[Rfam]
RNA sequence: GAUUAAUGAUGUAAAUAGCCAAAUCUGAGCAUCAAAAGACCUUCCAGUCUCAAUAGUUCUGAGA
Numbered sequence: 001g002a003u004u005a006a007u008g009a010u011g012u013a014a015a016u017a018g019c020c021a022a023a024u025c026u027g028a029g030c031a032u033c034a035a036a037a038g039a040c041c042u043u044c045c046a047g048u049c050u051c052a053a054u055a056g057u058u059c060u061g062a063g064a
Stems, first nucleotide, its partner, number of pairs: 029059001031057002037050004
The family of this 64-nucleotide RNA from Gulo gulo is "Small nucleolar RNA U2-19". Pairs were carried over by alignment from the consensus structure, which is taken from published work. Its family is annotated with nucleolus and RNA processing in the Gene Ontology. A search with the family's covariance model found it, with a score of 48 bits. The family's RNA type in Rfam is C/D-box small nucleolar RNA. Rfam 15.1 lists 1,147 matches to the family in 531 species.